Rfam assigns this 267-nucleotide RNA sequence from Clostridium sp. BL8 to the family "glmS glucosamine-6-phosphate activated ribozyme aptamer". By type it is a riboswitch.
RNA sequence: CCAUUUAACUAAGCGCCAGAACUUAUGAAUUUCCUCACAUGAUAGCUUAAAUAUAACUUAGUUAUAUUUAAGGUUCAUAGAAAUAGGGUGAUUUAUGCAAAAUAUAGUUAAAGACUUAAGAGCAUUUAUACCUAUGGAGAGAAGUAUGUAAGUUGACGAGGAUGGGGAGUAUCGAAUCUUCGGCGGGUGCCCCACGGUAUCGCACUACCGUUAACGAUUGAUAAAAGCAGAAAGUGAUUUCUGUGACAAAACAAUCCGGUGUAAAAA
Numbered sequence: 001c002c003a004u005u006u007a008a009c010u011a012a013g014c015g016c017c018a019g020a021a022c023u024u025a026u027g028a029a030u031u032u033c034c035u036c037a038c039a040u041g042a043u044a045g046c047u048u049a050a051a052u053a054u055a056a057c058u059u060a061g062u063u064a065u066a067u068u069u070a071a072g073g074u075u076c077a078u079a080g081a082a083a084u085a086g087g088g089u090g091a092u093u094u095a096u097g098c099a100a101a102a103u104a105u106a107g108u109u110a111a112a113g114a115c116u117u118a119a120g121a122g123c124a125u126u127u128a129u130a131c132c133u134a135u136g137g138a139g140a141g142a143a144g145u146a147u148g149u150a151a152g153u154u155g156a157c158g159a160g161g162a163u164g165g166g167g168a169g170u171a172u173c174g175a176a177u178c179u180u181c182g183g184c185g186g187g188u189g190c191c192c193c194a195c196g197g198u199a200u201c202g203c204a205c206u207a208c209c210g211u212u213a214a215c216g217a218u219u220g221a222u223a224a225a226a227g228c229a230g231a232a233a234g235u236g237a238u239u240u241c242u243g244u245g246a247c248a249a250a251a252c253a254a255u256c257c258g259g260u261g262u263a264a265a266a267a
Stems, first nucleotide, its partner, number of pairs: 020154008029145005163194005172183004195210005216256005227244007

From the family's description: This entry contains a glucosamine-6-phosphate activated ribozyme that is found in the mRNA for GlmS. GlmS is an enzyme that uses fructose-6-phosphate and glutamine to generate glucosamine-6-phosphate. The ribozyme catalyses self cleavage of the glmS mRNA that is thought to regulate GlmS activity.